[Rfam]
RNA sequence: GUCGCGUAAGCGCCGUAGGCAGGAGCGGGGGACCCAAGGUAAGUGCCGGGCCCGGACGUUGAGAGACGUGACGGGAACGGCUUGGGGUGAAGUCGCCGAAACGGAACGCAGUUGCAGCACGCAGCGGCGGACCGGACCGGAGGCCGGGCGCACUCACAGCCCGAACCCGACAGCUCACCUCGAAGGCGUCGGUGAGGAGAUAU
Numbered sequence: 001g002u003c004g005c006g007u008a009a010g011c012g013c014c015g016u017a018g019g020c021a022g023g024a025g026c027g028g029g030g031g032a033c034c035c036a037a038g039g040u041a042a043g044u045g046c047c048g049g050g051c052c053c054g055g056a057c058g059u060u061g062a063g064a065g066a067c068g069u070g071a072c073g074g075g076a077a078c079g080g081c082u083u084g085g086g087g088u089g090a091a092g093u094c095g096c097c098g099a100a101a102c103g104g105a106a107c108g109c110a111g112u113u114g115c116a117g118c119a120c121g122c123a124g125c126g127g128c129g130g131a132c133c134g135g136a137c138c139g140g141a142g143g144c145c146g147g148g149c150g151c152a153c154u155c156a157c158a159g160c161c162c163g164a165a166c167c168c169g170a171c172a173g174c175u176c177a178c179c180u181c182g183a184a185g186g187c188g189u190c191g192g193u194g195a196g197g198a199g200a201u202a203u
Stems, first nucleotide, its partner, number of pairs: 011188004026182005035084004085168003093143002096140003146162004
This 203-nucleotide RNA sequence from Streptomyces candidus belongs to the Rfam family "c-di-AMP riboswitch aptamer (ydaO/yuaA leader)".
Rfam links the family to the GO terms regulation of gene expression and cyclic-di-AMP binding.
Lineage of the source: Bacteria > Actinomycetes > Kitasatosporales > Streptomycetaceae > Streptomyces.